Annotation:
A member of the RNA family "UnaL2 LINE 3' element" from Anguilla anguilla, 54 nucleotides long. The family's consensus secondary structure is taken from published work. The organism belongs to Anguilla, within Eukaryota. The eel long interspersed element (LINE) UnaL2 and its partner short interspersed element (SINE) share a conserved 3' tail containing a stem-loop that is critical for their retrotransposition. Presumably, the first step of retrotransposition is the recognition of their 3' tails by UnaL2-encoded reverse transcriptase.
RNA sequence: UGUGAAAAGUUAUGUAAGUUGCUCUGGAUAAGAGCGUCUGCUAAAUGACUGUGU
Numbered sequence: 001u002g003u004g005a006a007a008a009g010u011u012a013u014g015u016a017a018g019u020u021g022c023u024c025u026g027g028a029u030a031a032g033a034g035c036g037u038c039u040g041c042u043a044a045a046u047g048a049c050u051g052u053g054u
Stems, first nucleotide, its partner, number of pairs: 013043001014041003020036006
Dot-bracket structure: ............((((...((((((.....))))))..))).)...........